[Rfam]
RNA: Selenocysteine transfer RNA
Organism: Polarella glacialis
RNA sequence: GUCAGGGUGAAUCGGGCUGGUGCUCGGACUACACUUCAAUUCUAGGGGCAUGGGGACAUGCAGGAGUUCGAUUCUCCCUCCUUGAC
Numbered sequence: 001g002u003c004a005g006g007g008u009g010a011a012u013c014g015g016g017c018u019g020g021u022g023c024u025c026g027g028a029c030u031a032c033a034c035u036u037c038a039a040u041u042c043u044a045g046g047g048g049c050a051u052g053g054g055g056a057c058a059u060g061c062a063g064g065a066g067u068u069c070g071a072u073u074c075u076c077c078c079u080c081c082u083u084g085a086c
Stems, first nucleotide, its partner, number of pairs: 001086007009078001012027006029045003033041001048061005063077004